[Rfam]
RNA sequence: GGGCCCGGUUCCCGCCCUCUCCGGGGAAUCGUGAACCGGGGGUUCCGACCGGGCCCACAAUGGGAUGAUGACCUUUUGCUUUACUGAACACAUGAUGACCACGCCCUUCGCUGACCUAAAUAUUUGAC
Dot-bracket structure: ((((((((((...((((...((((...........))))))))...))))))))))........................................................................
Overview: A member of the RNA family "Small nucleolar RNA snoR9" from Pyrococcus furiosus, 128 nucleotides long. Gene Ontology terms of the family: RNA processing and nucleolus. Clan: Archaeal small nucleolar RNA CD-box.